The record is a 252-nucleotide RNA from Klebsiella pneumoniae, which matches "Erse small RNA" in Rfam.
RNA sequence: CCCGCUGAACUGCUGGCGCCCUAUACCGGCGAUAUUGUGGCCGAAGGCGUCGGUAAAGUCCUGCGCGGCGGCGCUCAGUUUCUGCUGAAGGGCGCAGAGCGCCAGCAGCGCUAUGUCGCGGAAGCGAUCACUGAAGAGUGGCGCCUGGCGCCGGGGCCGCUGGAGCUGGCCUGGUUUGCUGAAGAGACAACGGCUAUUGAGCGCGCGCUGGCCGCACUGGAAAAACGGCUGGAAACGCUGGAGGGCAAAUGA
Numbered sequence: 001c002c003c004g005c006u007g008a009a010c011u012g013c014u015g016g017c018g019c020c021c022u023a024u025a026c027c028g029g030c031g032a033u034a035u036u037g038u039g040g041c042c043g044a045a046g047g048c049g050u051c052g053g054u055a056a057a058g059u060c061c062u063g064c065g066c067g068g069c070g071g072c073g074c075u076c077a078g079u080u081u082c083u084g085c086u087g088a089a090g091g092g093c094g095c096a097g098a099g100c101g102c103c104a105g106c107a108g109c110g111c112u113a114u115g116u117c118g119c120g121g122a123a124g125c126g127a128u129c130a131c132u133g134a135a136g137a138g139u140g141g142c143g144c145c146u147g148g149c150g151c152c153g154g155g156g157c158c159g160c161u162g163g164a165g166c167u168g169g170c171c172u173g174g175u176u177u178g179c180u181g182a183a184g185a186g187a188c189a190a191c192g193g194c195u196a197u198u199g200a201g202c203g204c205g206c207g208c209u210g211g212c213c214g215c216a217c218u219g220g221a222a223a224a225a226c227g228g229c230u231g232g233a234a235a236c237g238c239u240g241g242a243g244g245g246c247a248a249a250u251g252a
Base pairs, nucleotide, nucleotide: 001244002243005240007081008080009079010078011077012054013053014052015051016050019047020046022044027040029038030037031036063074064073065072066071084215085214087212090208092206093205094204095203099144100143101142102141103140104139115128116127117126118125119124148179149178150177152174154172155171157169158168159167161165186198187197189195217231219229
A search with the family's covariance model found it, with a score of 176 bits.